[Rfam]
RNA: Actinobacteria sRNA Ms_IGR-5
Organism: Micromonosporaceae bacterium
Nucleotides: 258
Stems, first nucleotide, its partner, number of pairs: 014058006059163004064157004069152003181252012194214006
Number, partner (000 for none) and nucleotide at each position: 001000a002000c003000a004000c005000g006000g007000g008000a009000g010000a011000g012000g013000a014058g015057g016056u017055g018054g019053u020000c021000c022000a023000a024000a025000g026000u027000u028000g029000u030000g031000u032000a033000g034000c035000u036000g037000u038000a039000g040000g041000a042000c043000u044000c045000g046000u047000g048000a049000g050000g051000u052000g053019a054018c055017u056016g057015u058014c059163c060162g061161c062160u063000a064157g065156u066155c067154g068000c069152c070151g071150a072000u073000c074000u075000c076000u077000c078000g079000g080000a081000c082000u083000c084000c085000u086000g087000g088000c089000a090000a091000c092000u093000g094000g095000u096000u097000c098000c099000u100000g101000a102000u103000c104000c105000g106000c107000g108000g109000u110000c111000c112000g113000u114000c115000g116000u117000g118000g119000c120000u121000g122000g123000g124000u125000u126000c127000a128000g129000g130000g131000u132000g133000c134000g135000a136000c137000g138000c139000c140000g141000a142000g143000c144000c145000g146000u147000c148000u149000g150071u151070c152069g153000g154067u155066g156065a157064c158000g159000c160062g161061g162060c163059g164000a165000a166000u167000a168000c169000c170000a171000g172000a173000c174000a175000g176000u177000u178000a179000c180000c181252c182251g183250a184249c185248c186247c187246c188245c189244g190243g191242g192241g193000c194214g195213u196212c197211g198210g199209a200000c201000u202000c203000a204000g205000u206000c207000c208000a209199u210198c211197c212196g213195g214194c215000g216000c217000c218000g219000c220000g221000c222000a223000c224000c225000a226000g227000c228000a229000a230000c231000g232000u233000g234000c235000g236000c237000g238000g239000a240000a241192c242191c243190c244189c245188g246187g247186g248185g249184g250183u251182u252181g253000c254000u255000c256000a257000u258000g